Shown here is a 100-nucleotide RNA sequence from a Peptococcaceae bacterium, a member of the family "Pyrrolysine insertion sequence mttB". Lineage of the source: Bacteria > Bacillota > Clostridia > Eubacteriales > Peptococcaceae. The literature on the family includes a 2013 paper in BMC Bioinformatics by Theil Have et al., "Effects of using coding potential, sequence conservation and mRNA structure conservation for predicting pyrroly-sine containing genes". The base pairs follow the family's consensus structure, which was predicted with CMfinder. The family has 23 seed sequences and 416 matches in Rfam 15.1. It is annotated as a cis-regulatory element. It scores 85 bits against the family's covariance model. Gene Ontology term of the family: pyrrolysine incorporation.

RNA sequence: UAGGCGGAUAGCAAGCUGCCCGACGCGCAGGCGGGUCACGAAAAGACCAUCACAGCGCUGCUGCCGGCCUUAGCUGGGGCCAACCUGAUUUACGGUCUGG
Numbered sequence: 001u002a003g004g005c006g007g008a009u010a011g012c013a014a015g016c017u018g019c020c021c022g023a024c025g026c027g028c029a030g031g032c033g034g035g036u037c038a039c040g041a042a043a044a045g046a047c048c049a050u051c052a053c054a055g056c057g058c059u060g061c062u063g064c065c066g067g068c069c070u071u072a073g074c075u076g077g078g079g080c081c082a083a084c085c086u087g088a089u090u091u092a093c094g095g096u097c098u099g100g
Stems, first nucleotide, its partner, number of pairs: 003012001025032001033062002077098001079096002